[Rfam]
RNA: Group II catalytic intron D1-D4-3
RNA sequence: AUGAUCGUGAGGUCAUGUCUGGAGGAUGCUCAAGGCGAAAUCGAGGGGCGGUGAACUGAAACCGGAUUGAGUGUGUGAUCUAGGUGGGGCCAGCGGGCACGUGACUGUUAAGCCCUCCAUUUGCAACGGGCUUAGGUUUUAUAAAUCCGGCGUCUUCGCGAGGAAAGUUAAGUGU
Number, nucleotide and partner (000 for none) at each position: 001a016002u015003g014004a013005u012006c011007g000008u000009g000010a000011g006012g005013u004014c003015a002016u001017g000018u000019c000020u000021g000022g000023a000024g000025g000026a000027u000028g175029c174030u000031c172032a000033a000034g000035g168036c167037g000038a000039a000040a000041u161042c160043g159044a000045g000046g155047g154048g153049c152050g151051g000052u000053g000054a000055a000056c000057u000058g000059a000060a000061a000062c150063c149064g148065g147066a146067u145068u000069g000070a000071g000072u000073g142074u141075g140076u000077g138078a000079u136080c135081u134082a133083g132084g131085u000086g000087g115088g114089g113090c112091c000092a000093g108094c107095g106096g105097g000098c000099a000100c000101g000102u000103g000104a000105c096106u095107g094108u093109u000110a000111a000112g090113c089114c088115c087116u000117c000118c000119a000120u000121u000122u000123g000124c000125a000126a000127c000128g000129g000130g000131c084132u083133u082134a081135g080136g079137u000138u077139u000140u075141a074142u073143a000144a000145a067146u066147c065148c064149g063150g062151c050152g049153u048154c047155u046156u000157c000158g000159c043160g042161a041162g000163g000164a000165a000166a000167g036168u035169u000170a000171a000172g031173u000174g029175u028